[Rfam]
RNA sequence: CCGUCCCGCCCCGUGGACGCCCUGACCAUUCCGUCGCGGUCCCGGCUACCCUUGCGGCGUGCGCCUGCUGCGGACCGUUCCGCGUAGGGCGCAAAGCCGACAGCCGUCGCACUCCAGGGAGCCCCUUCAUG
Numbered sequence: 001c002c003g004u005c006c007c008g009c010c011c012c013g014u015g016g017a018c019g020c021c022c023u024g025a026c027c028a029u030u031c032c033g034u035c036g037c038g039g040u041c042c043c044g045g046c047u048a049c050c051c052u053u054g055c056g057g058c059g060u061g062c063g064c065c066u067g068c069u070g071c072g073g074a075c076c077g078u079u080c081c082g083c084g085u086a087g088g089g090c091g092c093a094a095a096g097c098c099g100a101c102a103g104c105c106g107u108c109g110c111a112c113u114c115c116a117g118g119g120a121g122c123c124c125c126u127u128c129a130u131g
Stems, first nucleotide, its partner, number of pairs: 060093004065087004096110002099108003

This 131-nucleotide RNA from Streptomyces regalis belongs to the Rfam family "Streptomyces-metH RNA". A search with the family's covariance model found it, with a score of 101 bits. The family's RNA type in Rfam is small RNA.